[Rfam]
RNA sequence: UUGGGGUGAGGUAGUAGGUUGUAUAGUUGGGGCUCCGCCCGGCUGUGGAAUAACUAUACAACCUACUGUCUUUCCUGA
Number, nucleotide and partner (000 for none) at each position: 001u078002u077003g076004g075005g074006g073007u000008g072009a071010g070011g069012u068013a067014g066015u065016a064017g063018g062019u061020u060021g059022u058023a057024u056025a055026g054027u053028u000029g000030g040031g039032g038033c037034u000035c000036c000037g033038c032039c031040c030041g000042g000043c048044u000045g000046u000047g000048g043049a000050a000051u000052a000053a027054c026055u025056a024057u023058a022059c021060a020061a019062c018063c017064u016065a015066c014067u013068g012069u011070c010071u009072u008073u006074c005075c004076u003077g002078a001
The family of this 78-nucleotide RNA sequence from Sus scrofa is "let-7 microRNA precursor family". It scores 76 bits against the family's covariance model. For this family Rfam cites "Control of developmental timing in animals" (Rougvie, Nat Rev Genet, 2001). NCBI's taxonomy places the organism under Eukaryota, Gnathostomata, Dipnotetrapodomorpha, Amniota, Sus. Rfam's curators write: This family represents the microRNAs (miRNA) let-7 and mir-98. let-7 was identified from a study of developmental timing in C. elegans, and was later shown to be part of a much larger class of non-coding RNAs termed miRNAs. Pairs were carried over by alignment from the consensus structure, which was predicted with RNAalifold.